[Rfam]
RNA sequence: UCAAAUGAUAGAGGCGCAAAAAAGACACCGUAGAAAGGGAGUCGGCAGAUGUUGAUUUUCUAUGGUAGCGAUUUUGCCGAACUGCUUAUUCAGGCAUGGAUAGGUGGUGGGCUUGCAGAGAAGAUCUGUAAGACUGUCUACCUUUGGUAGGAGAGCUAUCUGAUUG
Number, nucleotide and partner (000 for none) at each position: 001u000002c000003a000004a000005a000006u000007g160008a159009u158010a157011g156012a000013g000014g000015c000016g077017c076018a075019a074020a073021a072022a000023a000024g069025a000026c000027a000028c000029c000030g063031u062032a061033g060034a059035a058036a057037g056038g000039g000040a000041g000042u000043c000044g000045g000046c000047a000048g000049a000050u000051g000052u000053u000054g000055a000056u037057u036058u035059u034060c033061u032062a031063u030064g000065g000066u000067a000068g000069c024070g000071a000072u021073u020074u019075u018076g017077c016078c000079g000080a000081a108082c107083u106084g105085c104086u103087u102088a101089u100090u099091c098092a097093g000094g000095c000096a000097u092098g091099g090100a089101u088102a087103g086104g085105u084106g083107g082108u081109g135110g134111g000112c132113u131114u130115g129116c128117a127118g126119a125120g000121a000122a000123g000124a000125u119126c118127u117128g116129u115130a114131a113132g112133a000134c110135u109136g000137u151138c150139u149140a148141c147142c146143u000144u000145u000146g142147g141148u140149a139150g138151g137152a000153g000154a000155g000156c011157u010158a009159u008160c007161u000162g000163a000164u000165u000166g000